[Rfam]
RNA sequence: GGGGGUGUUCCGGAUUCGACCCCUGGUUGGCGCGCACGGCUGCCCUUCGAGAGUGAGGGUCUCUCGUUAAAUCACCUUCAAACAAAAAUAAACGGCACUUACGAAGAAAUGCCCCUGGCUGCCUAAGUAGCAGCCUCGUUCGCGCACUGACACCUGCUAGGUGAUGCGGACGUCGACAGCAGGCAUGGUGGACCGGGCUAUCUGCGGCCGGUUUGCCCUCUCUUCAAUCCGUGGAUUAGUCGACACUUAAGCGCGUGCAGUCGCGUAAUGCCGGCGAGAUAAAUACGGCACUAUGAGGGUAGAUGCUUUGCGCAAAGGUCAGGGGCACGCGGGUUCAAUUCCCGCCACCUCCACCA
Numbered sequence: 001g002g003g004g005g006u007g008u009u010c011c012g013g014a015u016u017c018g019a020c021c022c023c024u025g026g027u028u029g030g031c032g033c034g035c036a037c038g039g040c041u042g043c044c045c046u047u048c049g050a051g052a053g054u055g056a057g058g059g060u061c062u063c064u065c066g067u068u069a070a071a072u073c074a075c076c077u078u079c080a081a082a083c084a085a086a087a088a089u090a091a092a093c094g095g096c097a098c099u100u101a102c103g104a105a106g107a108a109a110u111g112c113c114c115c116u117g118g119c120u121g122c123c124u125a126a127g128u129a130g131c132a133g134c135c136u137c138g139u140u141c142g143c144g145c146a147c148u149g150a151c152a153c154c155u156g157c158u159a160g161g162u163g164a165u166g167c168g169g170a171c172g173u174c175g176a177c178a179g180c181a182g183g184c185a186u187g188g189u190g191g192a193c194c195g196g197g198c199u200a201u202c203u204g205c206g207g208c209c210g211g212u213u214u215g216c217c218c219u220c221u222c223u224u225c226a227a228u229c230c231g232u233g234g235a236u237u238a239g240u241c242g243a244c245a246c247u248u249a250a251g252c253g254c255g256u257g258c259a260g261u262c263g264c265g266u267a268a269u270g271c272c273g274g275c276g277a278g279a280u281a282a283a284u285a286c287g288g289c290a291c292u293a294u295g296a297g298g299g300u301a302g303a304u305g306c307u308u309u310g311c312g313c314a315a316a317g318g319u320c321a322g323g324g325g326c327a328c329g330c331g332g333g334u335u336c337a338a339u340u341c342c343c344g345c346c347a348c349c350u351c352c353a354c355c356a
Stems, first nucleotide, its partner, number of pairs: 001352007020325009032313005038307003043299005048066005054080006117135006137172006145163003153183006190223003195218003206237002209234001211232001239275004244270002247267001251264003255291004260286002329345005
Annotation:
transfer-messenger RNA: a 356-nucleotide RNA from Opitutaceae bacterium TAV5. Bacterial tmRNA, also known as 10Sa RNA or SsrA, is named for its dual tRNA and mRNA-like properties. Its role is to liberate the mRNA from a stalled ribosome. To accomplish this part of the tmRNA is used as a reading frame that ends in a translation stop signal. The broken mRNA is replaced in the ribosome by the tmRNA and translation of the tmRNA leads to addition of a proteolysis tag to the incomplete protein enabling recognition by a protease. The family's consensus secondary structure is taken from published work. Rfam classes the family as a non-coding RNA gene. The source organism's lineage runs through Bacteria, Pseudomonadati, Verrucomicrobiota, Opitutales and Opitutaceae.